This 58-nucleotide sequence from Caballeronia telluris belongs to the Rfam family "Betaproteobacteria toxic small RNA". It scores 52 bits against the family's covariance model.
RNA sequence: CGUCUCCUCCAAGUCUCCAUGACGUGGAUUCAGCCCGCCAGCGAGCGGGCUUUUUGUU
Numbered sequence: 001c002g003u004c005u006c007c008u009c010c011a012a013g014u015c016u017c018c019a020u021g022a023c024g025u026g027g028a029u030u031c032a033g034c035c036c037g038c039c040a041g042c043g044a045g046c047g048g049g050c051u052u053u054u055u056g057u058u
Base pairs, nucleotide, nucleotide: 008028009027010026011025013023014022015021032051033050034049035048036047037046038045

For this family Rfam cites "A vast collection of microbial genes that are toxic to bacteria" (Kimelman et al., Genome Res, 2012).
From the family's description: Overexpression in amino aid rich medium attenuates growth, suggesting role in repressing amino acid intake and metabolism.